A member of the RNA family "TPP riboswitch aptamer (THI element)" from a Fimbriimonadaceae bacterium, 108 nucleotides long. About the family: Vitamin B(1) in its active form thiamin pyrophosphate (TPP) is an essential coenzyme that is synthesised by coupling of pyrimidine and thiazole moieties in bacteria. Its family is annotated with thiamine pyrophosphate binding in the Gene Ontology.
RNA sequence: ACCGCCCGCAGGGGGAGCCGAAACGGCUGAGAGGUCAUCUGCAAUGAUGACGACCCCUAGAACCUGAUCCGGUUAGUACCGGUGUAGGGAUUGUGGAAGCUGGCCUCC
Numbered sequence: 001a002c003c004g005c006c007c008g009c010a011g012g013g014g015g016a017g018c019c020g021a022a023a024c025g026g027c028u029g030a031g032a033g034g035u036c037a038u039c040u041g042c043a044a045u046g047a048u049g050a051c052g053a054c055c056c057c058u059a060g061a062a063c064c065u066g067a068u069c070c071g072g073u074u075a076g077u078a079c080c081g082g083u084g085u086a087g088g089g090a091u092u093g094u095g096g097a098a099g100c101u102g103g104c105c106u107c108c
Base pairs, nucleotide, nucleotide: 006096007095008094009093010092011057012056013055014054017027018026019025020024034051035050036049037048038047063088064087065086066085069082070081071080072079